Record summary
The record is a 76-nucleotide RNA sequence from Denticeps clupeoides, which matches "mir-216 microRNA precursor family" in Rfam. Its family is annotated with miRNA-mediated post-transcriptional gene silencing and RISC complex in the Gene Ontology. It scores 56 bits against the family's covariance model. Its Rfam clan is "mir-216 clan". A reference for the family is Shao et al. (2008), "Identification of novel chicken microRNAs and analysis of their genomic organization", Gene. The source organism's lineage runs through Eukaryota, Teleostei, Clupei, Denticipitoidei and Denticeps. The family has 57 seed sequences and 1,667 matches in Rfam 15.1.
[Rfam]
RNA sequence: UGACCGUGUAAUCUCUGCAGGCAACUGUGAUUUGCGAUGUCACCGCUCACGUUCUCCUGCAGGGGUUGCACGGUCU
Numbered sequence: 001u002g003a004c005c006g007u008g009u010a011a012u013c014u015c016u017g018c019a020g021g022c023a024a025c026u027g028u029g030a031u032u033u034g035c036g037a038u039g040u041c042a043c044c045g046c047u048c049a050c051g052u053u054c055u056c057c058u059g060c061a062g063g064g065g066u067u068g069c070a071c072g073g074u075c076u
Base pairs, nucleotide, nucleotide: 003074004073005072006071007070009068010067011066012065013064014063015062016061017060020058021057024053026051027050028049029048030047